[Rfam]
RNA sequence: AAGCAGGCCUUCCAGCAUGGUGAGGUUUGCUGUAAUCUUUUCCAUUCCUGCAGAGCCUGCAAGACAAAAGCUUGAAAUAGUUUGAGGCCACCUCCUUCUAGGAGGGGGCUUUAGAAGUUUCCUACAGUU
Numbered sequence: 001a002a003g004c005a006g007g008c009c010u011u012c013c014a015g016c017a018u019g020g021u022g023a024g025g026u027u028u029g030c031u032g033u034a035a036u037c038u039u040u041u042c043c044a045u046u047c048c049u050g051c052a053g054a055g056c057c058u059g060c061a062a063g064a065c066a067a068a069a070g071c072u073u074g075a076a077a078u079a080g081u082u083u084g085a086g087g088c089c090a091c092c093u094c095c096u097u098c099u100a101g102g103a104g105g106g107g108g109c110u111u112u113a114g115a116a117g118u119u120u121c122c123u124a125c126a127g128u129u
Stems, first nucleotide, its partner, number of pairs: 003060006018044003023038005074121004088108002091105003095101002
RNA: Small nucleolar RNA SNORA9
Organism: Microcaecilia unicolor